[Rfam]
About this RNA:
A member of the RNA family "c-di-GMP-I riboswitch aptamer" from Turicibacter sp. HGF1, 87 nucleotides long.
RNA sequence: AAAUUUUAUAGGCAAAUUUGGAGAAAUCCAAAGACGCAAAGCUAAAGGGGCUAAGGUCAAUUGAGACUAUGCUAGCCAGUUGCCGAA
Numbered sequence: 001a002a003a004u005u006u007u008a009u010a011g012g013c014a015a016a017u018u019u020g021g022a023g024a025a026a027u028c029c030a031a032a033g034a035c036g037c038a039a040a041g042c043u044a045a046a047g048g049g050g051c052u053a054a055g056g057u058c059a060a061u062u063g064a065g066a067c068u069a070u071g072c073u074a075g076c077c078a079g080u081u082g083c084c085g086a087a
Stems, first nucleotide, its partner, number of pairs: 012037002017032006040081004047077002049073003056067003